Annotation: A member of the RNA family "cspA thermoregulator" from Vibrio galatheae, 451 nucleotides long. Rfam classes the family as an RNA thermoregulator. A reference for the family is Giuliodori et al. (2010), "The cspA mRNA is a thermosensor that modulates translation of the cold-shock protein CspA", Mol Cell.
RNA sequence: CUUGCUCUGCGAUUCAGAGUUAUUAGUGAAACUGCAAGUCGAAAGUAAAUUCUUAGUAAACGCGUUACCGUUGUUAUCCUUAGUGUUUCCCUUAGCUUCAUCGUUACAUUAAAUAGUUCAAAUAUUCAGCGCACCAAGAAGAUUGAUUUAACUUAUAUAAGGAAGACAUCAUGUCUAACAAAACUACUGGUAUCGUAAAAUGGUUUAACGAAGAGAAAGGCUUCGGUUUCAUCACUCCAGAAAACGGCGGUGCUGACGUAUUCGUUCACUUCCGUGCAAUCGCUUCUGAAGGUUUCAAAACUCUAAAAGAAGGCCAACAGGUUUCUUUUGAAGUUGAACAAGGCCAAAAAGGCCCACAAGCUGCUAACGUAGUACCAGCUUAAUUGUAGAUUGACGAAAACUUCGGUUUUCUAAGAUUUCAAAAAACCAGCCAAUAGGCUGGUUUUUUUAC
Numbered sequence: 001c002u003u004g005c006u007c008u009g010c011g012a013u014u015c016a017g018a019g020u021u022a023u024u025a026g027u028g029a030a031a032c033u034g035c036a037a038g039u040c041g042a043a044a045g046u047a048a049a050u051u052c053u054u055a056g057u058a059a060a061c062g063c064g065u066u067a068c069c070g071u072u073g074u075u076a077u078c079c080u081u082a083g084u085g086u087u088u089c090c091c092u093u094a095g096c097u098u099c100a101u102c103g104u105u106a107c108a109u110u111a112a113a114u115a116g117u118u119c120a121a122a123u124a125u126u127c128a129g130c131g132c133a134c135c136a137a138g139a140a141g142a143u144u145g146a147u148u149u150a151a152c153u154u155a156u157a158u159a160a161g162g163a164a165g166a167c168a169u170c171a172u173g174u175c176u177a178a179c180a181a182a183a184c185u186a187c188u189g190g191u192a193u194c195g196u197a198a199a200a201u202g203g204u205u206u207a208a209c210g211a212a213g214a215g216a217a218a219g220g221c222u223u224c225g226g227u228u229u230c231a232u233c234a235c236u237c238c239a240g241a242a243a244a245c246g247g248c249g250g251u252g253c254u255g256a257c258g259u260a261u262u263c264g265u266u267c268a269c270u271u272c273c274g275u276g277c278a279a280u281c282g283c284u285u286c287u288g289a290a291g292g293u294u295u296c297a298a299a300a301c302u303c304u305a306a307a308a309g310a311a312g313g314c315c316a317a318c319a320g321g322u323u324u325c326u327u328u329u330g331a332a333g334u335u336g337a338a339c340a341a342g343g344c345c346a347a348a349a350a351g352g353c354c355c356a357c358a359a360g361c362u363g364c365u366a367a368c369g370u371a372g373u374a375c376c377a378g379c380u381u382a383a384u385u386g387u388a389g390a391u392u393g394a395c396g397a398a399a400a401c402u403u404c405g406g407u408u409u410u411c412u413a414a415g416a417u418u419u420c421a422a423a424a425a426a427c428c429a430g431c432c433a434a435u436a437g438g439c440u441g442g443u444u445u446u447u448u449u450a451c
Base pairs, nucleotide, nucleotide: 004020005019006018007017008016009015027239028238031236033234034233045229048228049227050226051225052220053219054218061215065213066212069210070209071208072207073206076204077203078202083172084171085170087168096161097160098159100156101155103123104122105121133143135141175190176189177188243335244334245333255263256262268322269321270320271319275316276315277313280307288301342354343353344352345351358381359380360379361378362377363376365374384416385415388412389411390410421448422447423446424445425444426443427442428441429440430439431438432437
Dot-bracket structure: ...((((((.....))))))......((..(.((..........(..(((((((......(...((..(((((..(((....(((.(........(((.((.(((...............))).........(.(.....).)...........))..)))......).)))..(((..........)))...........))).))))).)).)..)))....)))))...)).).))...(((.........((.....))....((((...(((..(.......(............).....).....).))..))))..........)))......((((.....))))...((((((.(........).))))))..((..(((...................)))..))....((((((((((((....))))))))))))...